[Rfam]
RNA sequence: UUUUGAGUAAUGAUGAACAACUGUGUUUAGGACUAUAGUUUCUGAUGCUGCUACUUUGUUGGUGGUAGUUGAAGACCAGACCCUUGCCUAUCUCAACUCAGUC
Numbered sequence: 001u002u003u004u005g006a007g008u009a010a011u012g013a014u015g016a017a018c019a020a021c022u023g024u025g026u027u028u029a030g031g032a033c034u035a036u037a038g039u040u041u042c043u044g045a046u047g048c049u050g051c052u053a054c055u056u057u058g059u060u061g062g063u064g065g066u067a068g069u070u071g072a073a074g075a076c077c078a079g080a081c082c083c084u085u086g087c088c089u090a091u092c093u094c095a096a097c098u099c100a101g102u103c
Stems, first nucleotide, its partner, number of pairs: 003101006039074004046067008
The record is a 103-nucleotide RNA from Zea mays, which matches "Small nucleolar RNA Z157/R69/R10" in Rfam. It is annotated as a C/D-box small nucleolar RNA. Rfam links the family to the GO terms RNA processing and nucleolus. It scores 62 bits against the family's covariance model. NCBI's taxonomy places the organism under Eukaryota, commelinids, Poales, Andropogoneae, Zea. Rfam 15.1 lists 836 matches to the family in 232 species.